Makes More Granules Regulator RNA (mmgR): a 76-nucleotide RNA from Methylobacterium nodulans. Its Rfam clan is "suhB sRNA clan". It scores 60 bits against the family's covariance model.
[Rfam]
RNA sequence: UCUGGCAGCCCUCCUUUGGGCGUUUCCUCCCUAGACUUCGGGCCGCUCCGCAGGGGCGGUCUUUUUUUGUCUAGCU
Numbered sequence: 001u002c003u004g005g006c007a008g009c010c011c012u013c014c015u016u017u018g019g020g021c022g023u024u025u026c027c028u029c030c031c032u033a034g035a036c037u038u039c040g041g042g043c044c045g046c047u048c049c050g051c052a053g054g055g056g057c058g059g060u061c062u063u064u065u066u067u068u069g070u071c072u073a074g075c076u
Stems, first nucleotide, its partner, number of pairs: 008021004040062009

Lineage of the source: Bacteria > Pseudomonadati > Hyphomicrobiales > Methylobacterium > Methylobacterium nodulans.